[Rfam]
RNA: mir-10 microRNA precursor family
Organism: Xiphophorus maculatus
Nucleotides: 070
Base pairs, nucleotide, nucleotide: 002068004066007063010060011059015055016054017053020050021049022048024046025045026044027043028042029041
Number, partner (000 for none) and nucleotide at each position: 001000a002068g003000u004066c005000c006000u007063g008000a009000a010060c011059c012000c013000g014000u015055a016054g017053a018000a019000c020050c021049g022048a023000a024046c025045u026044u027043g028042u029041g030000u031000u032000a033000a034000c035000u036000g037000a038000c039000a040000c041029c042028a043027c044026a045025a046024g047000c048022u049021u050020g051000c052000a053017u054016c055015u056000a057000c058000a059011g060010g061000u062000u063007c064000c065000c066004g067000u068002c069000u070000g